Background
The family of this 133-nucleotide RNA sequence from Staphylococcus saccharolyticus is "RNA Staph. aureus A". Pairs were carried over by alignment from the consensus structure, which is taken from published work. The family's RNA type in Rfam is small RNA. The source organism's lineage runs through Bacteria, Bacillota, Caryophanales, Staphylococcaceae and Staphylococcus. Rfam links the family to the GO terms mRNA binding and sRNA-mediated gene silencing.

[Rfam]
RNA sequence: AGUUAACGAUUACAAGGAAUAUAUUGAGUAGCGACUGUAUAUUCUAUGAGGUUAACUUAAUACGUAGUAGUGAUAAAAGUUCUCCCAAGGAUACUACUAAGAAACAUACUUCGAAGUAACCGAAGUGUGUUUU
Numbered sequence: 001a002g003u004u005a006a007c008g009a010u011u012a013c014a015a016g017g018a019a020u021a022u023a024u025u026g027a028g029u030a031g032c033g034a035c036u037g038u039a040u041a042u043u044c045u046a047u048g049a050g051g052u053u054a055a056c057u058u059a060a061u062a063c064g065u066a067g068u069a070g071u072g073a074u075a076a077a078a079g080u081u082c083u084c085c086c087a088a089g090g091a092u093a094c095u096a097c098u099a100a101g102a103a104a105c106a107u108a109c110u111u112c113g114a115a116g117u118a119a120c121c122g123a124a125g126u127g128u129g130u131u132u133u
Stems, first nucleotide, its partner, number of pairs: 002056006016045009026035001069098004074093002081091003102132012